RNA sequence: UCUGGCGAUGAUGACACACUUGCCCUCACUGAGAACACUGUUCAGUAAUGAGAGCCUCACCAGGUACUCAGCUGAGCCAGA
Numbered sequence: 001u002c003u004g005g006c007g008a009u010g011a012u013g014a015c016a017c018a019c020u021u022g023c024c025c026u027c028a029c030u031g032a033g034a035a036c037a038c039u040g041u042u043c044a045g046u047a048a049u050g051a052g053a054g055c056c057u058c059a060c061c062a063g064g065u066a067c068u069c070a071g072c073u074g075a076g077c078c079a080g081a
Base pairs, nucleotide, nucleotide: 001081002080003079004078005077006076

This 81-nucleotide sequence from Anseranas semipalmata belongs to the Rfam family "Small nucleolar RNA SNORD103/SNORD85". The family has 41 seed sequences and 1,349 matches in Rfam 15.1. Rfam classes the family as a C/D-box small nucleolar RNA. It scores 76 bits against the family's covariance model.